[Rfam]
RNA sequence: UUUGUUUGCUUCUAGGGUUCCGAUUUGACUGUCCAUUUCAAAUGCUGGUCCGAGAGAGGCAGGGUAAUUCUAAGGUAGCUAUAGAAUAAUGUUGCUUUAGAGUUACUUACACGGCGGGAUAAAAGCCCGGGAGGA
Number, nucleotide and partner (000 for none) at each position: 001u000002u000003u000004g000005u000006u000007u061008g060009c059010u058011u057012c056013u000014a000015g051016g050017g000018u000019u000020c048021c047022g045023a043024u042025u041026u040027g039028a038029c000030u000031g000032u000033c000034c000035a000036u000037u000038u028039c027040a026041a025042a024043u023044g000045c022046u000047g021048g020049u000050c016051c015052g000053a000054g000055a000056g012057a011058g010059g009060c008061a007062g108063g107064g106065u105066a104067a103068u102069u101070c100071u099072a098073a097074g096075g095076u094077a093078g092079c091080u000081a000082u000083a000084g000085a000086a000087u000088a000089a000090u000091g079092u078093u077094g076095c075096u074097u073098u072099a071100g070101a069102g068103u067104u066105a065106c064107u063108u062109a000110c130111a000112c133113g000114g000115c000116g128117g127118g126119a000120u000121a000122a000123a000124a000125g000126c118127c117128c116129g000130g110131g000132a000133g112134g000135a000
A member of the RNA family "Guanidine-I riboswitch aptamer" from Pseudanabaenococcus habilitatus, 135 nucleotides long. Lineage of the source: Bacteria > Bacillati > Cyanophyceae > Pseudanabaenococcus > Pseudanabaenococcus habilitatus.